Nucleotides: 173
Stems, first nucleotide, its partner, number of pairs: 011158004018043005044153006054065002066138003074103006106132004
Number, partner (000 for none) and nucleotide at each position: 001000g002000c003000g004000c005000g006000g007000c008000c009000u010000c011158c012157g013156c014155c015000g016000a017000a018043u019042c020041c021040g022039g023000c024000g025000u026000g027000c028000c029000c030000g031000c032000u033000c034000g035000g036000c037000a038000c039022c040021c041020g042019g043018a044153a045152c046151c047150g048149g049148g050000g051000a052000c053000c054065c055064a056000c057000c058000g059000u060000g061000a062000c063000a064055u065054g066138g067137g068136g069000u070000g071000a072000a073000u074103c075102g076101g077100u078099u079098c080000a081000c082000a083000g084000c085000c086000c087000g088000g089000c090000c091000c092000c093000g094000g095000g096000c097000c098079g099078g100077a101076c102075c103074g104000u105000a106132g107131g108130g109129c110000a111000g112000c113000c114000u115000u116000c117000c118000g119000u120000a121000c122000c123000a124000c125000c126000a127000c128000c129109g130108c131107c132106c133000g134000a135000a136068c137067c138066c139000g140000a141000c142000a143000g144000c145000u146000a147000a148049c149048c150047c151046g152045g153044u154000a155014g156013g157012c158011g159000g160000a161000g162000c163000a164000c165000g166000g167000a168000a169000g170000g171000a172000g173000u